[Rfam]
RNA sequence: UGCAGAGUAAUUGGAAAGCGUUAAGUGUCUAAUCAUGGGAUGUUGGAUUAGAACGAACACUGAUAGUGGCGGUUUUCUAAUGCGUCCGCUGUA
Numbered sequence: 001u002g003c004a005g006a007g008u009a010a011u012u013g014g015a016a017a018g019c020g021u022u023a024a025g026u027g028u029c030u031a032a033u034c035a036u037g038g039g040a041u042g043u044u045g046g047a048u049u050a051g052a053a054c055g056a057a058c059a060c061u062g063a064u065a066g067u068g069g070c071g072g073u074u075u076u077c078u079a080a081u082g083c084g085u086c087c088g089c090u091g092u093a
Stems, first nucleotide, its partner, number of pairs: 001093005010081009019071003025054002028052007038087005058068004
Dot-bracket structure: (((((....((((((((((((...((.(((((((...[[[[[...)))))))))...((((...))))))).))))))))).]]]]].)))))